This 74-nucleotide RNA sequence from Eptesicus fuscus belongs to the Rfam family "mir-9279 microRNA precursor family". Rfam links the family to the GO terms miRNA-mediated post-transcriptional gene silencing and RISC complex. The base pairs follow the family's consensus structure, which was predicted with RNAalifold. Rfam's curators put it in the seed alignment.
[Rfam]
RNA sequence: GCGGGUGAGGCCGUGCGCCCCUGGAUCCAGGUGAGGCCACAGGCCCCUGGGUCCGGGAGAGGCCAUGCGCCCCU
Numbered sequence: 001g002c003g004g005g006u007g008a009g010g011c012c013g014u015g016c017g018c019c020c021c022u023g024g025a026u027c028c029a030g031g032u033g034a035g036g037c038c039a040c041a042g043g044c045c046c047c048u049g050g051g052u053c054c055g056g057g058a059g060a061g062g063c064c065a066u067g068c069g070c071c072c073c074u
Stems, first nucleotide, its partner, number of pairs: 003072005009064004016059001018057003023054009033045001